[Rfam]
RNA sequence: ACUGGAGAGUGCCGCUGGCGGGUCCUGAACCGACCCACCGACGCGGCCGCCGAAGGUGCAAGCCGCGCUCGCCGAGCGGGGCGAAUCUCUCAGGCAAAAGGACAGU
Numbered sequence: 001a002c003u004g005g006a007g008a009g010u011g012c013c014g015c016u017g018g019c020g021g022g023u024c025c026u027g028a029a030c031c032g033a034c035c036c037a038c039c040g041a042c043g044c045g046g047c048c049g050c051c052g053a054a055g056g057u058g059c060a061a062g063c064c065g066c067g068c069u070c071g072c073c074g075a076g077c078g079g080g081g082c083g084a085a086u087c088u089c090u091c092a093g094g095c096a097a098a099a100g101g102a103c104a105g106u
Base pairs, nucleotide, nucleotide: 001106002105003104004103011047012046013045014044049095050094051093052091053090056089058087062082063081
RNA: Glycine riboswitch aptamer